[Rfam]
RNA sequence: ACACAAGGAAGGAGGUGAUCCGACGAAUGGAAAUUCAAAGGACUCGUGAGGUGGCUGUCAGCUGAGCGCUGAAGCCGGCUGUGCACGGAUUUCGUUCACCCCGAUGCGCUGAGCGAAUUCCAGGCAGCCACCCGGCCCCCGAGCUCCCGGUCUGUCCGAUCGGGAUCGGUCGCGAAUCCACCGGUACUCACCGUGGGAAACGUGCCGAUACGGCUCGGGGGUUGUUCCAU
Numbered sequence: 001a002c003a004c005a006a007g008g009a010a011g012g013a014g015g016u017g018a019u020c021c022g023a024c025g026a027a028u029g030g031a032a033a034u035u036c037a038a039a040g041g042a043c044u045c046g047u048g049a050g051g052u053g054g055c056u057g058u059c060a061g062c063u064g065a066g067c068g069c070u071g072a073a074g075c076c077g078g079c080u081g082u083g084c085a086c087g088g089a090u091u092u093c094g095u096u097c098a099c100c101c102c103g104a105u106g107c108g109c110u111g112a113g114c115g116a117a118u119u120c121c122a123g124g125c126a127g128c129c130a131c132c133c134g135g136c137c138c139c140c141g142a143g144c145u146c147c148c149g150g151u152c153u154g155u156c157c158g159a160u161c162g163g164g165a166u167c168g169g170u171c172g173c174g175a176a177u178c179c180a181c182c183g184g185u186a187c188u189c190a191c192c193g194u195g196g197g198a199a200a201c202g203u204g205c206c207g208a209u210a211c212g213g214c215u216c217g218g219g220g221g222u223u224g225u226u227c228c229a230u
Base pairs, nucleotide, nucleotide: 014059015058016057017056019054061114062113063112065110066109068107069106076103077102078101133224134223135222136221137220138219139218140217141216142215143214144213145212146164147163148162149161150160151159
The family of this 230-nucleotide RNA sequence from Nocardia speluncae is "Actinobacteria sRNA Ms_IGR-5".
It scores 108 bits against the family's covariance model.